[Rfam]
RNA sequence: AGGGAUAGACCGGAGAAAUACACAAUUUCUGGGCACUAAACAACUACAAGCACAGAGCGCUUCGAGAAGUAGUUGUUUCUUGACGAGAGAAUAUGUAUAUC
Numbered sequence: 001a002g003g004g005a006u007a008g009a010c011c012g013g014a015g016a017a018a019u020a021c022a023c024a025a026u027u028u029c030u031g032g033g034c035a036c037u038a039a040a041c042a043a044c045u046a047c048a049a050g051c052a053c054a055g056a057g058c059g060c061u062u063c064g065a066g067a068a069g070u071a072g073u074u075g076u077u078u079c080u081u082g083a084c085g086a087g088a089g090a091a092u093a094u095g096u097a098u099a100u101c
Base pairs, nucleotide, nucleotide: 018098019097020096021095025092026091027089028088030086034082035081039078040077041075042074043073044072045071046070049061050060051059
Rfam assigns this 101-nucleotide sequence from Nanay virus to the family "Insect-specific Flavivirus 3' UTR cis-acting replication element (CRE)". Taxonomically the source falls in Orthoflavivirus (Viruses, Orthornavirae, Kitrinoviricota, Amarillovirales). About the family: Flavi_ISFV_CRE is a Insect specific Flavivirus family. The literature on the family includes a 1998 paper in J Virol by Zeng et al., "Identification of specific nucleotide sequences within the conserved 3'-SL in the dengue type 2 virus genome required for replication". It is annotated as a cis-regulatory element.